[Rfam]
RNA sequence: CGUUAUGAACAACUCGUACGGCAGUGGCGGGGGACCCAAACACCGGGUGGUUGGCUUAGGCCAAAAACCCUAGGGGUGAAGUGUGAAGAGAAGGAAACUUCGACUCCACCGAGGUAACUCCACUUCGAACCCGACAGCUUACCUCGUAGGUAUCAAGGAGAGGCUUU
Numbered sequence: 001c002g003u004u005a006u007g008a009a010c011a012a013c014u015c016g017u018a019c020g021g022c023a024g025u026g027g028c029g030g031g032g033g034a035c036c037c038a039a040a041c042a043c044c045g046g047g048u049g050g051u052u053g054g055c056u057u058a059g060g061c062c063a064a065a066a067a068c069c070c071u072a073g074g075g076g077u078g079a080a081g082u083g084u085g086a087a088g089a090g091a092a093g094g095a096a097a098c099u100u101c102g103a104c105u106c107c108a109c110c111g112a113g114g115u116a117a118c119u120c121c122a123c124u125u126c127g128a129a130c131c132c133g134a135c136a137g138c139u140u141a142c143c144u145c146g147u148a149g150g151u152a153u154c155a156a157g158g159a160g161a162g163g164c165u166u167u
Base pairs, nucleotide, nucleotide: 001026002025003024027147028146029145030144031143032142037073074132075131076130082108083107085105111126112125113124114123